The family of this 120-nucleotide sequence from Anaerotruncus sp. G3(2012) is "FMN riboswitch aptamer (RFN element)". Its family is annotated with FMN binding in the Gene Ontology. The match comes from Rfam's covariance-model search (112 bits).
RNA sequence: GGUCUGUUUCAGGGCGGGGUGCAAUUCCCCACUGGCGGUAAAGUCCGCGACCCGGCGAAAGUCGGCUGAAUGGGUGAAACUCCCAUACCAACGGUAUAGUCCGGAUGAAAGAAACAGCGU
Dot-bracket structure: ...(((((((......(((.......))).[[((((((....[[))))...((..........))....(((((.......)))))]])).(((....]]))).......)))))))...
Numbered sequence: 001g002g003u004c005u006g007u008u009u010c011a012g013g014g015c016g017g018g019g020u021g022c023a024a025u026u027c028c029c030c031a032c033u034g035g036c037g038g039u040a041a042a043g044u045c046c047g048c049g050a051c052c053c054g055g056c057g058a059a060a061g062u063c064g065g066c067u068g069a070a071u072g073g074g075u076g077a078a079a080c081u082c083c084c085a086u087a088c089c090a091a092c093g094g095u096a097u098a099g100u101c102c103g104g105a106u107g108a109a110a111g112a113a114a115c116a117g118c119g120u
Stems, first nucleotide, its partner, number of pairs: 004117007017029003031100002033090002035048004043088002052065002070086005092103003